[Rfam]
RNA sequence: AUACAUCGAGUUCGCCUCCUCCCAGAACUCGAUAAGGAAUAUGGCACUCCUCCUCCCAAGCCGUAUUCAAGAUCAGGCCGCGCAUCCUCCUCCCGCGCGGCCUUUUUC
Dot-bracket structure: ......(((.((.............)).))).....(((((((((..............)))))))))......(((((((((...........))))))))).....
The record is a 108-nucleotide RNA from Brucella canis, which matches "Alphaproteobacterial ar14" in Rfam. Gene Ontology term of the family: biological process involved in symbiotic interaction. About the family: Smr14C2 was renamed NfeR1 (Nodule Formation Efficiency RNA) highly expressed in salt stress and during the symbiotic interaction on legume roots. Pairs were carried over by alignment from the consensus structure.